[Rfam]
RNA sequence: CAAGCAUUGGCCUCAGCAGAUUGAAGAGAGCACCACAGUGGUCACCACUCAGUCCGCCGAGGUUGGAGCUGC
Numbered sequence: 001c002a003a004g005c006a007u008u009g010g011c012c013u014c015a016g017c018a019g020a021u022u023g024a025a026g027a028g029a030g031c032a033c034c035a036c037a038g039u040g041g042u043c044a045c046c047a048c049u050c051a052g053u054c055c056g057c058c059g060a061g062g063u064u065g066g067a068g069c070u071g072c
Stems, first nucleotide, its partner, number of pairs: 003070003007066008016057002019054005026045001028043002031040003
mir-622 microRNA precursor family: a 72-nucleotide sequence from Homo sapiens. Gene Ontology terms of the family: RISC complex and miRNA-mediated post-transcriptional gene silencing. A search with the family's covariance model found it, with a score of 87 bits. The organism belongs to Homo, within Eukaryota.